[Rfam]
RNA sequence: AGGAGGAACAACUCCAGUGGCUGCGGCAGCUCUGGAGCCCUGGAGUCAGCUCCCACAGUAACCACAGGGCUCUCGGUCUGCAGGGUCUGGCGGCUCUGGGGCGGG
Numbered sequence: 001a002g003g004a005g006g007a008a009c010a011a012c013u014c015c016a017g018u019g020g021c022u023g024c025g026g027c028a029g030c031u032c033u034g035g036a037g038c039c040c041u042g043g044a045g046u047c048a049g050c051u052c053c054c055a056c057a058g059u060a061a062c063c064a065c066a067g068g069g070c071u072c073u074c075g076g077u078c079u080g081c082a083g084g085g086u087c088u089g090g091c092g093g094c095u096c097u098g099g100g101g102c103g104g105g
Stems, first nucleotide, its partner, number of pairs: 002097004009089002012085003019078005025072001028071007040058003
mir-8834 microRNA precursor family: a 105-nucleotide RNA sequence from Vulpes vulpes. A search with the family's covariance model found it, with a score of 58 bits. The organism belongs to Vulpes, within Eukaryota. Gene Ontology terms of the family: miRNA-mediated post-transcriptional gene silencing and RISC complex.